Rfam assigns this 49-nucleotide sequence from Blakea schlimii to the family "Plastid-ccsA-ndhD-1 3UTR RNA". Pairs were carried over by alignment from the consensus structure, which was predicted with LocARNA. The organism belongs to Blakea, within Eukaryota. Its Rfam clan is "Plastid-ccsA_ndhD 3UTR RNA clan". The family's RNA type in Rfam is cis-regulatory element. The sequence is in the family's curated seed alignment. Plastid-ccsA-ndhD-1 is a non-coding RNA (ncRNA) recognised in plastids. It was found in the three prime untranslated region (3UTR) of ccsA and ndhD genes, its 3UTR location suggests a role in transcript maturation.

RNA sequence: GUGAGAACCUUUUGAAUCAAUUAAUGUAGUGAUUCAAAUGGUUCUCGAC
Numbered sequence: 001g002u003g004a005g006a007a008c009c010u011u012u013u014g015a016a017u018c019a020a021u022u023a024a025u026g027u028a029g030u031g032a033u034u035c036a037a038a039u040g041g042u043u044c045u046c047g048a049c
Base pairs, nucleotide, nucleotide: 002047003046004045005044006043007042008041009040011038012037013036014035015034016033017032018031019030